Shown here is a 79-nucleotide RNA sequence from Actinacidiphila reveromycinica, a member of the family "nrdJ RNA". Taxonomically the source falls in Actinacidiphila (Bacteria, Actinomycetota, Kitasatosporales, Streptomycetaceae). The family's RNA type in Rfam is small RNA.
RNA sequence: AUUUGCCGAGGCGCCGGAGCGCGCCGAGGCGGCAGACAACACACAGUGCUGCGGGAAGAACCGGGCACAUCAGGGCGUU
Dot-bracket structure: ...((((..(((((......)))))..))))..............(((((..(.......)..)))))...........